[Rfam]
RNA sequence: AACGCACUGCGCGGGAGCCCGGACGCAUCGGGCUGAGAGGGAGGCUGGCGGCCUCCGACCGUACGAACCUGAUCCGGCUCAUACCGGCGAAGGGAGGAGCAGCCCUGAUGGC
Number, nucleotide and partner (000 for none) at each position: 001a000002a000003c000004g000005c000006a000007c099008u098009g000010c096011g062012c061013g060014g059015g000016a000017g033018c032019c031020c030021g029022g000023a000024c000025g000026c000027a000028u000029c021030g020031g019032g018033c017034u000035g000036a000037g000038a000039g000040g056041g055042a054043g053044g052045c051046u050047g000048g000049c000050g046051g045052c044053c043054u042055c041056c040057g000058a000059c014060c013061g012062u011063a000064c000065g000066a000067a000068c093069c092070u091071g000072a000073u000074c087075c086076g085077g084078c000079u000080c000081a000082u000083a000084c077085c076086g075087g074088c000089g000090a000091a070092g069093g068094g000095a000096g010097g000098a008099g007100c000101a000102g000103c000104c000105c000106u000107g000108a000109u000110g000111g000112c000
RNA: TPP riboswitch aptamer (THI element)
Organism: Streptomyces oceani